[Rfam]
RNA sequence: GUACCUCUUCAAGGAAUAACUCGUAUAUUUUCGGGAUUGGCCCGAAUGUUUCUACCUGGAAACCUUAAUUUCUGGACUACGAGCUAGAUGAAUCGGACA
Numbered sequence: 001g002u003a004c005c006u007c008u009u010c011a012a013g014g015a016a017u018a019a020c021u022c023g024u025a026u027a028u029u030u031u032c033g034g035g036a037u038u039g040g041c042c043c044g045a046a047u048g049u050u051u052c053u054a055c056c057u058g059g060a061a062a063c064c065u066u067a068a069u070u071u072c073u074g075g076a077c078u079a080c081g082a083g084c085u086a087g088a089u090g091a092a093u094c095g096g097a098c099a
Stems, first nucleotide, its partner, number of pairs: 018085001020083006030046006056075007